The family of this 140-nucleotide RNA sequence from Todus mexicanus is "Small nucleolar RNA SNORA46". It scores 90 bits against the family's covariance model. The source organism's lineage runs through Eukaryota, Archelosauria, Dinosauria, Neoaves and Todus.
RNA sequence: AGCACUAUUUUUAAACCUGUUGGUGGAAUUUACUGACUGCCAUGGGUUACGCUGUAGUGCAAAAGAAUCUCCUGGCUCUUUUAGAGCGUGGCUGACCUUACUCUGUUCAGCUGCUGCUCUUCUGAAGCUAAGGAACAGAA
Numbered sequence: 001a002g003c004a005c006u007a008u009u010u011u012u013a014a015a016c017c018u019g020u021u022g023g024u025g026g027a028a029u030u031u032a033c034u035g036a037c038u039g040c041c042a043u044g045g046g047u048u049a050c051g052c053u054g055u056a057g058u059g060c061a062a063a064a065g066a067a068u069c070u071c072c073u074g075g076c077u078c079u080u081u082u083a084g085a086g087c088g089u090g091g092c093u094g095a096c097c098u099u100a101c102u103c104u105g106u107u108c109a110g111c112u113g114c115u116g117c118u119c120u121u122c123u124g125a126a127g128c129u130a131a132g133g134a135a136c137a138g139a140a
Stems, first nucleotide, its partner, number of pairs: 002060007014048004021042006068135001070134004074129004079124001083121001086117003089113004094108002

Rfam's curators write: ACA46 is a member of the H/ACA class of snoRNA that guide the sites of modification of uridines to pseudouridines. The family's consensus secondary structure was predicted with RNAfold. The family has 22 seed sequences and 582 matches in Rfam 15.1. It is annotated as an H/ACA-box small nucleolar RNA.